[Rfam]
RNA sequence: CCCUAGCCCUGAUAGAAGCGGCAUCCUUUUAUGGUGGGGUUCACCAUAAAAGAUACAGCGGAUAGCAGGAAAUAGC
Numbered sequence: 001c002c003c004u005a006g007c008c009c010u011g012a013u014a015g016a017a018g019c020g021g022c023a024u025c026c027u028u029u030u031a032u033g034g035u036g037g038g039g040u041u042c043a044c045c046a047u048a049a050a051a052g053a054u055a056c057a058g059c060g061g062a063u064a065g066c067a068g069g070a071a072a073u074a075g076c
Stems, first nucleotide, its partner, number of pairs: 009068003013064002018059002023054003029049008
A member of the RNA family "Flavo-1 RNA" from Flavobacterium bizetiae, 76 nucleotides long.
Taxonomically the source falls in Flavobacterium (Bacteria, Pseudomonadati, Flavobacteriia, Flavobacteriaceae).
It scores 79 bits against the family's covariance model.